[Rfam]
RNA sequence: UGUUAGCUCCAAACACUGCAAUAUUGAAUAGUUGGUCAGAUUCGGAAGGAAGCAGCCAAAUCAAUUGAUACAGGUGUUCUGAUAAAGCUAACAGAAA
Numbered sequence: 001u002g003u004u005a006g007c008u009c010c011a012a013a014c015a016c017u018g019c020a021a022u023a024u025u026g027a028a029u030a031g032u033u034g035g036u037c038a039g040a041u042u043c044g045g046a047a048g049g050a051a052g053c054a055g056c057c058a059a060a061u062c063a064a065u066u067g068a069u070a071c072a073g074g075u076g077u078u079c080u081g082a083u084a085a086a087g088c089u090a091a092c093a094g095a096a097a
Base pairs, nucleotide, nucleotide: 004090005089006088007087008086010081011080012078013077014074016073017072018071020069023065024064025063026062027061032059033058034057035056036055041050042049043048